A member of the RNA family "SAM/SAH riboswitch aptamer" from Parasedimentitalea huanghaiensis, 49 nucleotides long. NCBI's taxonomy places the organism under Bacteria, Pseudomonadota, Alphaproteobacteria, Paracoccaceae, Parasedimentitalea. The family's consensus secondary structure is taken from published work. Its family is annotated with S-adenosylmethionine metabolic process and regulation of gene expression in the Gene Ontology.
RNA sequence: UACCCACCACAACGGCUUCCUGACGUGGUAGGCGAAACCCAAUGGAGCA
Numbered sequence: 001u002a003c004c005c006a007c008c009a010c011a012a013c014g015g016c017u018u019c020c021u022g023a024c025g026u027g028g029u030a031g032g033c034g035a036a037a038c039c040c041a042a043u044g045g046a047g048c049a
Base pairs, nucleotide, nucleotide: 004032005031006029007028008027009026010025013022014021015048016047017046019045020044
Dot-bracket structure: ...(((((((..(([[[.[[))..))))).))...........]]]]].